[Rfam]
RNA sequence: UGAAAACGUUUUAAAAUAAUAUCGUUCUUAAAAUUUCUUUAAAGAAAGAAGAAUGGUAUUUCUUCUAUAAAGUUCCUUCUUCUUUUGUCUAAGAAAAAAAUAUUAUAAGGAGGAAGAACAAGA
Numbered sequence: 001u002g003a004a005a006a007c008g009u010u011u012u013a014a015a016a017u018a019a020u021a022u023c024g025u026u027c028u029u030a031a032a033a034u035u036u037c038u039u040u041a042a043a044g045a046a047a048g049a050a051g052a053a054u055g056g057u058a059u060u061u062c063u064u065c066u067a068u069a070a071a072g073u074u075c076c077u078u079c080u081u082c083u084u085u086u087g088u089c090u091a092a093g094a095a096a097a098a099a100a101u102a103u104u105a106u107a108a109g110g111a112g113g114a115a116g117a118a119c120a121a122g123a
Base pairs, nucleotide, nucleotide: 006025007024008023010021012019026117027116028115029114034096035095036094037093038092039091042088044086045085046084047083048082049081050080051079052078053077057069058068059067
RNA: Streptococcus sRNA SSRC34